[Rfam]
RNA sequence: UAGAAAAAGAAGGAGCUCCCUUCAGUCCAAACACAGAUAAAGAAGGAUCAAAAAUAUCUCCCGCAUCAUUCAUACAGUCACUGCGGUUUAAAAUUGAUCGUUUCUCUACCACGAGUGUUUGGAUGGAUGAGUCGGCAGAUAUUUCUACCCUCUUCUUUUUCUAUCCAUGACUGGACUGAAAGAAUCUCCUUCUAUAUCUAUC
Numbered sequence: 001u002a003g004a005a006a007a008a009g010a011a012g013g014a015g016c017u018c019c020c021u022u023c024a025g026u027c028c029a030a031a032c033a034c035a036g037a038u039a040a041a042g043a044a045g046g047a048u049c050a051a052a053a054a055u056a057u058c059u060c061c062c063g064c065a066u067c068a069u070u071c072a073u074a075c076a077g078u079c080a081c082u083g084c085g086g087u088u089u090a091a092a093a094u095u096g097a098u099c100g101u102u103u104c105u106c107u108a109c110c111a112c113g114a115g116u117g118u119u120u121g122g123a124u125g126g127a128u129g130a131g132u133c134g135g136c137a138g139a140u141a142u143u144u145c146u147a148c149c150c151u152c153u154u155c156u157u158u159u160u161c162u163a164u165c166c167a168u169g170a171c172u173g174g175a176c177u178g179a180a181a182g183a184a185u186c187u188c189c190u191u192c193u194a195u196a197u198c199u200a201u202c
Base pairs, nucleotide, nucleotide: 013188014187015186017184019182023178024177025176026175027174028173029172036165058138059137061135062134063133067129068128069127070126075121
This 202-nucleotide RNA from Arabidopsis lyrata belongs to the Rfam family "MIR159 microRNA precursor family". Lineage of the source: Eukaryota > Viridiplantae > rosids > malvids > Arabidopsis lyrata. Rfam links the family to the GO terms RISC complex and miRNA-mediated post-transcriptional gene silencing.